RNA sequence: UAGAACAAUGUAGAUAAGGGAAGUCGGCAAAUGGAUCCGUAACUUCGGGAUAAGGAUUGGCUCUAAGGGUGGGUACGUUGGGCCUUGAAACUGAACAGUUGCUGGUCCGGAUUCGGCGGACUGGAUGUUUUGCUUUCGGGGUAGAGACGUCUGGACUGCUGGCUGGACUUGGCGGCUGGAUUUUCCUUGGUAAGGCUGCUCUCUUCCACGGGGGUAUGCCCUUCUGGCGUACAUUAACAACCAACUUAGAACUGGUACGGACAAGGGGAAUCUGACUGUCUAAUAAAACAUAGCAUUGCGAUGGCCAGAAAGUGUGUUGACGCAUGUGAUUUCUGCCCAGUGCUCUGAAUGUCAAAGUGAAGAAAUUCACCAAGCGCGGGUAAACGGCGGAGUAACUAUGACUCUCUUAAGGUAGCCAAAUGCUCGUCAUCUAACUAGUGACGCGCAUGAAUGGAUUAACGAGAUUCCACUGUCCCUAUCUACUAUCUAGCGAAACCACAGCCAGGGAACGGGCCUGGAAAA
Numbered sequence: 001u002a003g004a005a006c007a008a009u010g011u012a013g014a015u016a017a018g019g020g021a022a023g024u025c026g027g028c029a030a031a032u033g034g035a036u037c038c039g040u041a042a043c044u045u046c047g048g049g050a051u052a053a054g055g056a057u058u059g060g061c062u063c064u065a066a067g068g069g070u071g072g073g074u075a076c077g078u079u080g081g082g083c084c085u086u087g088a089a090a091c092u093g094a095a096c097a098g099u100u101g102c103u104g105g106u107c108c109g110g111a112u113u114c115g116g117c118g119g120a121c122u123g124g125a126u127g128u129u130u131u132g133c134u135u136u137c138g139g140g141g142u143a144g145a146g147a148c149g150u151c152u153g154g155a156c157u158g159c160u161g162g163c164u165g166g167a168c169u170u171g172g173c174g175g176c177u178g179g180a181u182u183u184u185c186c187u188u189g190g191u192a193a194g195g196c197u198g199c200u201c202u203c204u205u206c207c208a209c210g211g212g213g214g215u216a217u218g219c220c221c222u223u224c225u226g227g228c229g230u231a232c233a234u235u236a237a238c239a240a241c242c243a244a245c246u247u248a249g250a251a252c253u254g255g256u257a258c259g260g261a262c263a264a265g266g267g268g269a270a271u272c273u274g275a276c277u278g279u280c281u282a283a284u285a286a287a288a289c290a291u292a293g294c295a296u297u298g299c300g301a302u303g304g305c306c307a308g309a310a311a312g313u314g315u316g317u318u319g320a321c322g323c324a325u326g327u328g329a330u331u332u333c334u335g336c337c338c339a340g341u342g343c344u345c346u347g348a349a350u351g352u353c354a355a356a357g358u359g360a361a362g363a364a365a366u367u368c369a370c371c372a373a374g375c376g377c378g379g380g381u382a383a384a385c386g387g388c389g390g391a392g393u394a395a396c397u398a399u400g401a402c403u404c405u406c407u408u409a410a411g412g413u414a415g416c417c418a419a420a421u422g423c424u425c426g427u428c429a430u431c432u433a434a435c436u437a438g439u440g441a442c443g444c445g446c447a448u449g450a451a452u453g454g455a456u457u458a459a460c461g462a463g464a465u466u467c468c469a470c471u472g473u474c475c476c477u478a479u480c481u482a483c484u485a486u487c488u489a490g491c492g493a494a495a496c497c498a499c500a501g502c503c504a505g506g507g508a509a510c511g512g513g514c515c516u517g518g519a520a521a522a
Base pairs, nucleotide, nucleotide: 001489002488003487004486010483011482012481013480014479015478016477018475019474020473034058035057036056037055038054043048059253060252062250063249064248065247066246067245068242069241070240072238074231075230076229077228078227079226080225081224082223083190084189087186089184090183096178097177098176099175102171104169105168106167107166108165109164110163113162114161115160116159117158118157119156121154122153123152124151125150126149127148128147129146130145131144254258267468268467269466270465271464272463273461274460277290278289279288293327294326295325296324298323299322300321304315305314331455332454333453335388336387337386340385341384342381343380344379345378347377350376351375352374357370358369359368360367361366389405390404391403392402393401407411426442427441428440429439430438502518503517504516505515506514
Background:
A member of the RNA family "Eukaryotic large subunit ribosomal RNA" from Schizosaccharomyces octosporus, 522 nucleotides of a longer RNA.